[Rfam]
Overview: The record is an 86-nucleotide RNA from Ziziphus jujuba, which matches "Small nucleolar RNA R160" in Rfam. Rfam classes the family as a C/D-box small nucleolar RNA. Its family is annotated with nucleolus and RNA processing in the Gene Ontology. snoR160 is a C/D box small nucleolar RNA, which acts as a methylation guide for 25S ribosomal RNA in plants. snoR160 has been alternatively named snoZ270 in rice. The pairing is the family consensus, mapped onto this sequence. It scores 59 bits against the family's covariance model. For this family Rfam cites "The high diversity of snoRNAs in plants: identification and comparative study of 120 snoRNA genes from Oryza sativa" (Chen et al., Nucleic Acids Res, 2003). The source organism's lineage runs through Eukaryota, Euphyllophyta, Gunneridae, fabids and Ziziphus jujuba.
RNA sequence: AGCAAAAUGAUGAAUUUGUUUUUUUUCCUUAAUCUGAAUUCUGAUGUGAAAUGCGUUAUCGUGGUCUUCAAAGUUCUCUGAUUGCU
Number, nucleotide and partner (000 for none) at each position: 001a086002g085003c084004a083005a082006a000007a000008u000009g000010a000011u000012g000013a000014a000015u000016u000017u000018g000019u000020u000021u000022u000023u000024u000025u000026u000027c000028c000029u000030u000031a000032a000033u000034c000035u000036g000037a000038a000039u000040u000041c000042u000043g000044a000045u000046g000047u000048g000049a000050a000051a000052u000053g000054c000055g000056u000057u000058a000059u000060c000061g000062u000063g000064g000065u000066c000067u000068u000069c000070a000071a000072a000073g000074u000075u000076c000077u000078c000079u000080g000081a000082u005083u004084g003085c002086u001